[Rfam]
RNA sequence: CGGCUCGGCCCGCCGAAUCGUUUUCGACGAACCGGGGAACCAACACCUCGGGGUGAAUCCGCGAAUAUUCGCGGUAGGGCGCACUCUUCCCGCCCGAACCCGUCAGCUAACCCGGUAGGCGGUUCCGGAAGAAGGA
Numbered sequence: 001c002g003g004c005u006c007g008g009c010c011c012g013c014c015g016a017a018u019c020g021u022u023u024u025c026g027a028c029g030a031a032c033c034g035g036g037g038a039a040c041c042a043a044c045a046c047c048u049c050g051g052g053g054u055g056a057a058u059c060c061g062c063g064a065a066u067a068u069u070c071g072c073g074g075u076a077g078g079g080c081g082c083a084c085u086c087u088u089c090c091c092g093c094c095c096g097a098a099c100c101c102g103u104c105a106g107c108u109a110a111c112c113c114g115g116u117a118g119g120c121g122g123u124u125c126c127g128g129a130a131g132a133a134g135g136a
Stems, first nucleotide, its partner, number of pairs: 011121004018030003031116006041050001051101003059074004077095004